Rfam assigns this 120-nucleotide sequence from Arachis hypogaea to the family "U5 spliceosomal RNA". On this family, see Zwieb, Nucleic Acids Res 1997: "The uRNA database". A search with the family's covariance model found it, with a score of 62 bits. It is annotated as a spliceosomal small nuclear RNA. NCBI's taxonomy places the organism under Eukaryota, Streptophyta, Pentapetalae, Fabales, Arachis.
RNA sequence: AGCCACGCAUUGUGUACUAACAAACUAUUCUUUCACCUUUUACUAAAGAAUACCGUCUACACGAUGCAUUGAGUGGUAUGGUAUACGCCAAUUUUUUUAAGAGCCUUCCCUAAAAGGAGU
Numbered sequence: 001a002g003c004c005a006c007g008c009a010u011u012g013u014g015u016a017c018u019a020a021c022a023a024a025c026u027a028u029u030c031u032u033u034c035a036c037c038u039u040u041u042a043c044u045a046a047a048g049a050a051u052a053c054c055g056u057c058u059a060c061a062c063g064a065u066g067c068a069u070u071g072a073g074u075g076g077u078a079u080g081g082u083a084u085a086c087g088c089c090a091a092u093u094u095u096u097u098u099a100a101g102a103g104c105c106u107u108c109c110c111u112a113a114a115a116g117g118a119g120u
Stems, first nucleotide, its partner, number of pairs: 003076004008066009026052008105119004